This 63-nucleotide sequence belongs to the Rfam family "RAGATH-1 hammerhead ribozyme". For this family Rfam cites "New classes of self-cleaving ribozymes revealed by comparative genomics analysis" (Weinberg et al., Nat Chem Biol, 2015).
RNA sequence: AACUCAACCAGGAGAGUAUAAAAUGUUUACUGAUGAGACUGGACGAAACCAAUAGGUUUAAAC
Numbered sequence: 001a002a003c004u005c006a007a008c009c010a011g012g013a014g015a016g017u018a019u020a021a022a023a024u025g026u027u028u029a030c031u032g033a034u035g036a037g038a039c040u041g042g043a044c045g046a047a048a049c050c051a052a053u054a055g056g057u058u059u060a061a062a063c
Stems, first nucleotide, its partner, number of pairs: 002017004008042004025063005037044001048057003